Shown here is a 106-nucleotide RNA from Lutibacter sp. HS1-25, a member of the family "6S-Flavo RNA". The source organism's lineage runs through Bacteria, Flavobacteriia, Flavobacteriales, Flavobacteriaceae and Lutibacter. The family's RNA type in Rfam is small RNA.
[Rfam]
RNA sequence: ACUCAACAAGAUAUCUUUAUAAAGGAAGAGUCUUAAUUGUUAAAGCAAGCCGUCUUGAACGGAUCCUUGAUCAAUUAGUUAUUCCUAAAAAUGUUAUAAGGAGUUU
Dot-bracket structure: ......................(((((......(((((....(((....((((.....))))...)))....)))))....)))))....................